[Rfam]
The record is a 101-nucleotide RNA sequence from Rummeliibacillus stabekisii, which matches "Purine riboswitch aptamer" in Rfam. It scores 79 bits against the family's covariance model. The family's consensus secondary structure is taken from published work.
Nucleotides: 101
Base pairs, nucleotide, nucleotide: 018087019086020085021084022083023082024081025080029049031047032046033045034044035043058077059076060074061073062072063071
Number, partner (000 for none) and nucleotide at each position: 001000c002000u003000u004000u005000u006000a007000a008000a009000a010000c011000c012000u013000a014000a015000a016000u017000a018087u019086c020085c021084u022083u023082g024081u025080a026000u027000a028000a029049g030000u031047u032046c033045a034044a035043g036000a037000a038000u039000a040000a041000g042000g043035c044034u045033u046032g047031a048000u049029c050000g051000u052000u053000u054000c055000u056000a057000c058077c059076a060074g061073c062072u063071a064000c065000c066000a067000u068000a069000a070000a071063u072062a073061g074060c075000u076059u077058g078000u079000c080025u081024a082023c083022a084021a085020g086019g087018a088000a089000u090000a091000u092000c093000a094000a095000a096000u097000a098000a099000a100000u101000g
Gene Ontology term of the family: purine nucleobase biosynthetic process. NCBI's taxonomy places the organism under Bacteria, Bacillati, Bacillota, Caryophanales, Rummeliibacillus.